[Rfam]
Shown here is a 104-nucleotide RNA sequence from Terriglobus roseus, a member of the family "SAM riboswitch aptamer (S box leader)". Pairs were carried over by alignment from the consensus structure, which is taken from published work. Gene Ontology term of the family: regulation of gene expression. The SAM riboswitch is found upstream of a number of genes which code for proteins involved in methionine or cysteine biosynthesis in Gram-positive bacteria.
RNA sequence: AUUUCAUGAAGAGUGGUUGAGGGAUGAGCCCUGCGACGCCACGACAACCGGACGAGGUCUGUACCGGUGUCAACUCUCUCCUGGGGAACCGGGGAACAUGAGAU
Numbered sequence: 001a002u003u004u005c006a007u008g009a010a011g012a013g014u015g016g017u018u019g020a021g022g023g024a025u026g027a028g029c030c031c032u033g034c035g036a037c038g039c040c041a042c043g044a045c046a047a048c049c050g051g052a053c054g055a056g057g058u059c060u061g062u063a064c065c066g067g068u069g070u071c072a073a074c075u076c077u078c079u080c081c082u083g084g085g086g087a088a089c090c091g092g093g094g095a096a097c098a099u100g101a102g103a104u
Base pairs, nucleotide, nucleotide: 001104002103003102004101005100006099007098008097013042014041015040016039017038021031022030023029026078027077028076043071044070045069046068048067049066050064052062053061075096080093081092082091083090084089